[Rfam]
RNA sequence: GCUCCCGAUGAUGCUCUUCUUUACCAUGCUAAUUCCGAUAUCUGUGACGAAGUCUUACUGUCUUGUUUCUGAGGGAGCU
Numbered sequence: 001g002c003u004c005c006c007g008a009u010g011a012u013g014c015u016c017u018u019c020u021u022u023a024c025c026a027u028g029c030u031a032a033u034u035c036c037g038a039u040a041u042c043u044g045u046g047a048c049g050a051a052g053u054c055u056u057a058c059u060g061u062c063u064u065g066u067u068u069c070u071g072a073g074g075g076a077g078c079u
Stems, first nucleotide, its partner, number of pairs: 001078005
Dot-bracket structure: (((((....................................................................))))).
RNA: Small nucleolar RNA snoR53Y